RNA sequence: AACCGGAAACCAGCACGGGCGUCGAGGCAACUCUACGCCCGUGCACGCAUGUUAAGGGUAAGAGAAAUAAU
Numbered sequence: 001a002a003c004c005g006g007a008a009a010c011c012a013g014c015a016c017g018g019g020c021g022u023c024g025a026g027g028c029a030a031c032u033c034u035a036c037g038c039c040c041g042u043g044c045a046c047g048c049a050u051g052u053u054a055a056g057g058g059u060a061a062g063a064g065a066a067a068u069a070a071u
Stems, first nucleotide, its partner, number of pairs: 013044009024033003